Shown here is a 289-nucleotide sequence from Rosellinia necatrix, a member of the family "Group I catalytic intron". NCBI's taxonomy places the organism under Eukaryota, Opisthokonta, Fungi, Pezizomycotina, Rosellinia. Rfam's curators write: Group I catalytic introns are large self-splicing ribozymes.
[Rfam]
RNA sequence: AUGAUAAGGUUGUAUGUACAGCCUUUUUGUAGAAGUGAACCUUCUGCUAUAAACCAUCAAAUUGCGGGAACACCCUAAAGCAAUCACAACCAAGUAGGAAUAGUAAUAUGUAUCCUAUGGCUCAGGUAAUGACUCGAGGUAUGGUAAAAUCGUGAUUGAUUAAUGAUUAGUAAUGGGUUAUCCGCAGCCAAGCACCAAGUAUUCUAAGGAAUAAUGGUGUGCAGUUCAUCGACUAAAUGUUGGUUGGCGCAAGCUUAAGAUAUAGUCAAGCCUCAUCUGAAAGGAUGCA
Numbered sequence: 001a002u003g004a005u006a007a008g009g010u011u012g013u014a015u016g017u018a019c020a021g022c023c024u025u026u027u028u029g030u031a032g033a034a035g036u037g038a039a040c041c042u043u044c045u046g047c048u049a050u051a052a053a054c055c056a057u058c059a060a061a062u063u064g065c066g067g068g069a070a071c072a073c074c075c076u077a078a079a080g081c082a083a084u085c086a087c088a089a090c091c092a093a094g095u096a097g098g099a100a101u102a103g104u105a106a107u108a109u110g111u112a113u114c115c116u117a118u119g120g121c122u123c124a125g126g127u128a129a130u131g132a133c134u135c136g137a138g139g140u141a142u143g144g145u146a147a148a149a150u151c152g153u154g155a156u157u158g159a160u161u162a163a164u165g166a167u168u169a170g171u172a173a174u175g176g177g178u179u180a181u182c183c184g185c186a187g188c189c190a191a192g193c194a195c196c197a198a199g200u201a202u203u204c205u206a207a208g209g210a211a212u213a214a215u216g217g218u219g220u221g222c223a224g225u226u227c228a229u230c231g232a233c234u235a236a237a238u239g240u241u242g243g244u245u246g247g248c249g250c251a252a253g254c255u256u257a258a259g260a261u262a263u264a265g266u267c268a269a270g271c272c273u274c275a276u277c278u279g280a281a282a283g284g285a286u287g288c289a
Stems, first nucleotide, its partner, number of pairs: 006025008030039001052245005058239002063186006073177003187225002192220004200213005229268001231267005247254002274287005